[Rfam]
RNA sequence: ACCAGCACUAAGUCAGCUGUCCGGGUAUCAGUGCCCGGUUCAGUGUUACAGUGCUGGGAGAGGAAGCCCUGUAACUGCGACGGUUCUGCCGCCUCUGUUUUAGAGCUGGCUCUGCCGAAGCGUUGCAGGGUUCGACCCAACGAGAGUGGCCUGCGCUGAAACCCAGCGGCUCAGGCCUAGUGUCGGGUCACACAAA
Numbered sequence: 001a002c003c004a005g006c007a008c009u010a011a012g013u014c015a016g017c018u019g020u021c022c023g024g025g026u027a028u029c030a031g032u033g034c035c036c037g038g039u040u041c042a043g044u045g046u047u048a049c050a051g052u053g054c055u056g057g058g059a060g061a062g063g064a065a066g067c068c069c070u071g072u073a074a075c076u077g078c079g080a081c082g083g084u085u086c087u088g089c090c091g092c093c094u095c096u097g098u099u100u101u102a103g104a105g106c107u108g109g110c111u112c113u114g115c116c117g118a119a120g121c122g123u124u125g126c127a128g129g130g131u132u133c134g135a136c137c138c139a140a141c142g143a144g145a146g147u148g149g150c151c152u153g154c155g156c157u158g159a160a161a162c163c164c165a166g167c168g169g170c171u172c173a174g175g176c177c178u179a180g181u182g183u184c185g186g187g188u189c190a191c192a193c194a195a196a
Stems, first nucleotide, its partner, number of pairs: 002057008012049002016044004022037005066131007077123003082116003089109002091106001093105004134189005148177003152173002155170004

This 196-nucleotide RNA from Gadus morhua belongs to the Rfam family "Small nucleolar RNA SNORA74". Its family is annotated with RNA processing and nucleolus in the Gene Ontology. It is annotated as an H/ACA-box small nucleolar RNA. Rfam describes the family as follows. U19 belongs to the H/ACA class of snoRNAs. snoRNAs bind a number of proteins (including dyskerin, Gar1p and Nop10p in the case of the H/ACA class) to form snoRNP complexes. This class are thought to guide the sites of modification of uridines to pseudouridines by forming direct base pairing interactions with substrate RNAs. Targets may include ribosomal and spliceosomal RNAs but the exact functions of many snoRNAs, including U19, are not confirmed. The base pairs follow the family's consensus structure, which was predicted with PFOLD. Its Rfam clan is "SNORA74 clan".